[Rfam]
Nucleotides: 102
Stems, first nucleotide, its partner, number of pairs: 004100001006098002009094001012091001014089001019084001023081003027076005
Number, partner (000 for none) and nucleotide at each position: 001000u002000a003000a004100u005000a006098u007097g008000u009094a010000c011000a012091u013000g014089a015000c016000a017000a018000a019084u020000c021000c022000u023081c024080a025079u026000c027076u028075a029074g030073u031072u032000a033000u034000g035000g036000u037000a038000g039000a040000u041000u042000u043000c044000c045000a046000u047000u048000u049000a050000a051000u052000u053000a054000u055000u056000c057000a058000g059000a060000g061000u062000c063000a064000c065000u066000u067000g068000u069000g070000a071000g072031a073030a074029c075028u076027a077000u078000u079025g080024u081023g082000a083000g084019g085000a086000c087000a088000a089014u090000a091012a092000c093000u094009u095000u096000u097007u098006a099000a100004g101000a102000u